[Rfam]
RNA sequence: GUUGCUUCUUACUGGUGAACUCUCUCAGAUUAAUCGUGGGAGAUGUUCAUGUUUCCGAAGCAGAAAUUAGUUCAAAUUUCUCCGUAUUAAACUGCUCAUUGUAAUUUCAUAUUGCACUCUGCUACAUGUCUCCUGAUUUUGUC
Number, nucleotide and partner (000 for none) at each position: 001g000002u000003u062004g061005c060006u059007u058008c057009u000010u000011a000012c000013u000014g000015g000016u049017g048018a047019a046020c045021u043022c042023u041024c040025u039026c000027a000028g000029a000030u000031u000032a000033a000034u000035c000036g000037u000038g000039g025040g024041a023042g022043a021044u000045g020046u019047u018048c017049a016050u000051g000052u000053u000054u000055c000056c000057g008058a007059a006060g005061c004062a003063g000064a000065a000066a000067u000068u000069a000070g000071u000072u000073c000074a000075a000076a000077u000078u000079u000080c000081u136082c135083c000084g133085u000086a131087u000088u000089a000090a000091a000092c000093u000094g122095c121096u000097c000098a118099u000100u116101g115102u000103a000104a000105u000106u000107u000108c000109a000110u000111a000112u000113u000114g000115c101116a100117c000118u098119c000120u000121g095122c094123u000124a000125c000126a000127u000128g000129u000130c000131u086132c000133c084134u000135g082136a081137u000138u000139u000140u000141g000142u000143c000
RNA: small nucleolar RNA snoR137
Organism: Momordica charantia